[Rfam]
RNA sequence: CCAGCCGGCCGGGCGGCCGCGUCACCUUCGGGUGCCGAGGAAAGUCCGGGCUCCACGGAGACACGGUGCCGGAUAACGUCCGGCGGGGGCGACCCCAGGGAAAGUGCCACAGAAAUCAAACCACCUGCGCGUGCGCAGGCCAGGGUGAAACGGUGGGGUAAGAGCCCACCGCGCGACCGGCAACGGAAGCGGCACGGCAAACCCCACCGGGAGCAAAGUCGAAUAGGAACGGCAUCGAUGCGGCUCGCCGCCUCGAAGCCCUGUCUUCGGGACGCCGUUCGGGUUGACUGCUAGAGGCGCCGGGCAACCGGCGUCCCAGAGGAAUGGCCGCCGCGCGGGAGAAAUCCCGCCGUACAGAACCCGGCUUACAGGCCGGCUGGUGCU
Numbered sequence: 001c002c003a004g005c006c007g008g009c010c011g012g013g014c015g016g017c018c019g020c021g022u023c024a025c026c027u028u029c030g031g032g033u034g035c036c037g038a039g040g041a042a043a044g045u046c047c048g049g050g051c052u053c054c055a056c057g058g059a060g061a062c063a064c065g066g067u068g069c070c071g072g073a074u075a076a077c078g079u080c081c082g083g084c085g086g087g088g089g090c091g092a093c094c095c096c097a098g099g100g101a102a103a104g105u106g107c108c109a110c111a112g113a114a115a116u117c118a119a120a121c122c123a124c125c126u127g128c129g130c131g132u133g134c135g136c137a138g139g140c141c142a143g144g145g146u147g148a149a150a151c152g153g154u155g156g157g158g159u160a161a162g163a164g165c166c167c168a169c170c171g172c173g174c175g176a177c178c179g180g181c182a183a184c185g186g187a188a189g190c191g192g193c194a195c196g197g198c199a200a201a202c203c204c205c206a207c208c209g210g211g212a213g214c215a216a217a218g219u220c221g222a223a224u225a226g227g228a229a230c231g232g233c234a235u236c237g238a239u240g241c242g243g244c245u246c247g248c249c250g251c252c253u254c255g256a257a258g259c260c261c262u263g264u265c266u267u268c269g270g271g272a273c274g275c276c277g278u279u280c281g282g283g284u285u286g287a288c289u290g291c292u293a294g295a296g297g298c299g300c301c302g303g304g305c306a307a308c309c310g311g312c313g314u315c316c317c318a319g320a321g322g323a324a325u326g327g328c329c330g331c332c333g334c335g336c337g338g339g340a341g342a343a344a345u346c347c348c349g350c351c352g353u354a355c356a357g358a359a360c361c362c363g364g365c366u367u368a369c370a371g372g373c374c375g376g377c378u379g380g381u382g383c384u
Base pairs, nucleotide, nucleotide: 001380002379003378004377005376006375007374008373009372010371011369012332013331014330015329016328017327018326020037021036023034024033025032026031042367043366044365046364047363048362049361050360051213052212053211054210059267060266064209065208066207067206068205069083070082071081072080073079084098085096086095087094088093099204100203104202105201106198107197108196121144122143124139125138126137127136128135129134152170153169154168155167156166157165171193172191173190174189177186178185179184217289218288219287220286227280228279229278230277231276232275258273260271261270262269296315297314298313299312300311301310302309303308
RNA: Bacterial RNase P class A
Organism: Aquabacter sp. L1I39